[Rfam]
RNA: Glycine riboswitch aptamer
Organism: Allocoprococcus comes
Nucleotides: 125
Base pairs, nucleotide, nucleotide: 006120007119008118009117010116011115012114020048021047022046023045024044025043026042027041028040050105051104052103053101054100057099059097063092064091065090066089067088
Number, partner (000 for none) and nucleotide at each position: 001000u002000g003000a004000u005000a006120u007119u008118u009117c010116c011115u012114g013000c014000g015000a016000g017000a018000g019000a020048a021047u022046c023045a024044u025043u026042u027041a028040u029000a030000a031000a032000g033000a034000u035000a036000u037000u038000u039000g040028a041027u042026a043025a044024a045023u046022g047021g048020u049000c050105g051104c052103c053101g054100a055000a056000g057099a058000u059097g060000c061000a062000a063092a064091c065090c066089g067088u068000a069000g070000a071000g072000u073000a074000g075000u076000a077000a078000a079000g080000c081000u082000c083000g084000u085000u086000g087000a088067a089066u090065g091064g092063u093000g094000a095000a096000a097059c098000u099057u100054u101053c102000a103052g104051g105050c106000a107000a108000a109000a110000g111000g112000a113000u114012c115011g116010g117009g118008a119007a120006a121000g122000g123000u124000a125000c